Small nucleolar RNA U109: a 131-nucleotide RNA from Scyliorhinus torazame.
A reference for the family is Gu et al. (2005), "A novel experimental approach for systematic identification of box H/ACA snoRNAs from eukaryotes", Nucleic Acids Res.
The family's consensus secondary structure was predicted with WAR.
Rfam classes the family as an H/ACA-box small nucleolar RNA.
RNA sequence: UCAAAGGUGAAACUUCAGACAUCUAUUCCCAUUAGGUGUUUGAUAUGAUGACGUGCGAGAGAAAUAUUGGAGAUAACAGGGCCAGCAGUCUUUCAGGACCGACUGAAUGGUAGUAUCAGUCUCUAACAUCA
Number, nucleotide and partner (000 for none) at each position: 001u000002c000003a000004a000005a054006g000007g052008u051009g000010a000011a000012a000013c000014u000015u000016c042017a041018g040019a039020c038021a037022u036023c035024u000025a000026u000027u000028c000029c000030c000031a000032u000033u000034a000035g023036g022037u021038g020039u019040u018041u017042g016043a000044u000045a000046u000047g000048a000049u000050g000051a008052c007053g000054u005055g000056c000057g000058a000059g000060a000061g000062a000063a000064a000065u000066a000067u000068u000069g124070g123071a122072g121073a000074u000075a000076a000077c000078a000079g000080g000081g111082c110083c000084a000085g000086c105087a104088g103089u102090c101091u000092u000093u000094c000095a000096g000097g000098a000099c000100c000101g090102a089103c088104u087105g086106a000107a000108u000109g000110g082111u081112a000113g000114u000115a000116u000117c000118a000119g000120u000121c072122u071123c070124u069125a000126a000127c000128a000129u000130c000131a000